Record summary: The record is a 55-nucleotide RNA from Cavenderia fasciculata, which matches "Class I RNA from Dictyostelium" in Rfam. The organism belongs to Cavenderia, within Eukaryota. Rfam classes the family as a non-coding RNA gene.
RNA sequence: GAUCCCUUCCUACAACUCAAACCAAUCAAUCAUCUGAAAACCCCCCAGGGAUCUG
Numbered sequence: 001g002a003u004c005c006c007u008u009c010c011u012a013c014a015a016c017u018c019a020a021a022c023c024a025a026u027c028a029a030u031c032a033u034c035u036g037a038a039a040a041c042c043c044c045c046c047a048g049g050g051a052u053c054u055g
Stems, first nucleotide, its partner, number of pairs: 001053003004049002
Rfam describes the family as follows. Dictyostelium Class I RNA was first reported for Aspegren et al. 2004 in Dictyostelium discoideum.